A member of the RNA family "Ribosomal protein L19 leader" from Virgibacillus salexigens, 38 nucleotides long.
About the family: This family is a putative r-protein leader autoregulatory structure found in B. subtilis and other low-GC Gram-positive bacteria.
A search with the family's covariance model found it, with a score of 36 bits.
Lineage of the source: Bacteria > Bacillati > Caryophanales > Bacillaceae > Virgibacillus.
Pairs were carried over by alignment from the consensus structure, which was predicted with CMfinder.
For this family Rfam cites "Diverse mechanisms for regulating ribosomal protein synthesis in Escherichia coli" (Zengel and Lindahl, Prog Nucleic Acid Res Mol Biol, 1994).

RNA sequence: ACGAUGUUCCGCUGUCCCUUAGGAGAUAAGAGCAUUGG
Numbered sequence: 001a002c003g004a005u006g007u008u009c010c011g012c013u014g015u016c017c018c019u020u021a022g023g024a025g026a027u028a029a030g031a032g033c034a035u036u037g038g
Base pairs, nucleotide, nucleotide: 003036004035005034006033007032008031009030013028014027015026016025018023